Record summary: This 77-nucleotide RNA sequence from Carlito syrichta belongs to the Rfam family "Small nucleolar RNA SNORD74". NCBI's taxonomy places the organism under Eukaryota, Vertebrata, Theria, Euarchontoglires, Carlito. For this family Rfam cites "Purified box C/D snoRNPs are able to reproduce site-specific 2'-O-methylation of target RNA in vitro" (Galardi et al., Mol Cell Biol, 2002). The match comes from Rfam's covariance-model search (63 bits).
RNA sequence: GAAGUGAUGAAGUAAUGAAGCCUGUGUUGGUAGGGACAUCUGAGACUCUUGAAUGCCAACCACUCUGAAGGAGCAUC
Numbered sequence: 001g002a003a004g005u006g007a008u009g010a011a012g013u014a015a016u017g018a019a020g021c022c023u024g025u026g027u028u029g030g031u032a033g034g035g036a037c038a039u040c041u042g043a044g045a046c047u048c049u050u051g052a053a054u055g056c057c058a059a060c061c062a063c064u065c066u067g068a069a070g071g072a073g074c075a076u077c
Stems, first nucleotide, its partner, number of pairs: 001077002004074002

Clan: SNORD74 clan. The base pairs follow the family's consensus structure, which was predicted with PFOLD.